[Rfam]
RNA: Small nucleolar RNA SNORD121A
RNA sequence: GCCGAAAAGACAGUGAUGUUUCCUUUCCAAGCACAUAUCCGAAUUGUGUGUGUGGACAACUUGAAGACUGAGUCUUUUCCUU
Numbered sequence: 001g002c003c004g005a006a007a008a009g010a011c012a013g014u015g016a017u018g019u020u021u022c023c024u025u026u027c028c029a030a031g032c033a034c035a036u037a038u039c040c041g042a043a044u045u046g047u048g049u050g051u052g053u054g055g056a057c058a059a060c061u062u063g064a065a066g067a068c069u070g071a072g073u074c075u076u077u078u079c080c081u082u
Base pairs, nucleotide, nucleotide: 001082004079005078006077008075009074010073011072